[Rfam]
RNA sequence: UGCCUGUGAUGUUAAUAAAUUUGUCCGUACCAUCUGAGAAUACGCUCUGAUGCAUUCAUUCUAAUUCUAUUUUCUGAGGCAA
Numbered sequence: 001u002g003c004c005u006g007u008g009a010u011g012u013u014a015a016u017a018a019a020u021u022u023g024u025c026c027g028u029a030c031c032a033u034c035u036g037a038g039a040a041u042a043c044g045c046u047c048u049g050a051u052g053c054a055u056u057c058a059u060u061c062u063a064a065u066u067c068u069a070u071u072u073u074c075u076g077a078g079g080c081a082a
Stems, first nucleotide, its partner, number of pairs: 001081004
This 82-nucleotide RNA from Gossypium australe belongs to the Rfam family "small nucleolar RNA snoR117". Gene Ontology terms of the family: RNA processing and nucleolus. The source organism's lineage runs through Eukaryota, malvids, Malvaceae, Malvoideae and Gossypium. A reference for the family is Chen and Wu (2009), "Mining small RNA sequencing data: a new approach to identify small nucleolar RNAs in Arabidopsis", Nucleic Acids Res. A search with the family's covariance model found it, with a score of 64 bits. The family's consensus secondary structure was predicted with RNAalifold.